[Rfam]
Nucleotides: 147
Stems, first nucleotide, its partner, number of pairs: 012131002018034005035127006045068001069112003077088003091106004
Number, partner (000 for none) and nucleotide at each position: 001000a002000a003000a004000u005000a006000a007000u008000a009000u010000a011000c012131g013130c014000a015000u016000a017000a018034u019033c020032c021031c022030a023000g024000a025000a026000g027000u028000c029000c030022u031021g032020g033019g034018a035127g036126c037125g038124g039123g040122g041000g042000a043000c044000c045068c046000a047000a048000c049000c050000c051000g052000u053000a054000c055000a056000c057000a058000u059000g060000g061000u062000g063000u064000a065000c066000u067000a068045g069112g070111g071110g072000u073000g074000u075000a076000u077088c078087c079086u080000u081000u082000u083000a084000u085000u086079a087078g088077g089000u090000a091106g092105g093104a094103g095000a096000u097000c098000u099000c100000u101000u102000c103094u104093u105092c106091c107000g108000a109000a110071c111070c112069c113000g114000a115000c116000a117000g118000c119000u120000a121000a122040c123039c124038u125037c126036g127035u128000a129000a130013g131012c132000a133000u134000a135000g136000g137000a138000g139000a140000g141000a142000g143000u144000c145000a146000u147000c
The record is a 147-nucleotide sequence from Metabacillus arenae, which matches "c-di-AMP riboswitch aptamer (ydaO/yuaA leader)" in Rfam. The source organism's lineage runs through Bacteria, Bacillota, Bacilli, Bacillaceae and Metabacillus. The match comes from Rfam's covariance-model search (87 bits).